[Rfam]
RNA sequence: UAGAACUGUUAUUGCGAGAAAUCAAAUGAGAGAGUAACGUCUCAAAGGGUUUCCACUAAUCCUCCGAUUAGCGUUUUGGUAAGUAAAUACCAAAGGGUUAGAAGCUCGGCGAAGUCGGCUGAGAACCACCGUAAGGUGUAGGAAUACACUACGAAAUGCAAACUAGAGAUAGUUGAGUGGUGAUAGGCCGGGUGUCUACAAA
Numbered sequence: 001u002a003g004a005a006c007u008g009u010u011a012u013u014g015c016g017a018g019a020a021a022u023c024a025a026a027u028g029a030g031a032g033a034g035u036a037a038c039g040u041c042u043c044a045a046a047g048g049g050u051u052u053c054c055a056c057u058a059a060u061c062c063u064c065c066g067a068u069u070a071g072c073g074u075u076u077u078g079g080u081a082a083g084u085a086a087a088u089a090c091c092a093a094a095g096g097g098u099u100a101g102a103a104g105c106u107c108g109g110c111g112a113a114g115u116c117g118g119c120u121g122a123g124a125a126c127c128a129c130c131g132u133a134a135g136g137u138g139u140a141g142g143a144a145u146a147c148a149c150u151a152c153g154a155a156a157u158g159c160a161a162a163c164u165a166g167a168g169a170u171a172g173u174u175g176a177g178u179g180g181u182g183a184u185a186g187g188c189c190g191g192g193u194g195u196c197u198a199c200a201a202a
Stems, first nucleotide, its partner, number of pairs: 018053006032042001034040001054194004064109004068101005074095008116190005125181005130153003136149005157176001159175002162173004
The family of this 202-nucleotide sequence from Clostridium vincentii is "Group II catalytic intron D1-D4-5". For this family Rfam cites "The ins and outs of group II introns" (Bonen and Vogel, Trends Genet, 2001). Rfam 15.1 lists 720 matches to the family in 418 species. The source organism's lineage runs through Bacteria, Bacillati, Clostridia, Clostridiaceae and Clostridium. The match comes from Rfam's covariance-model search (150 bits).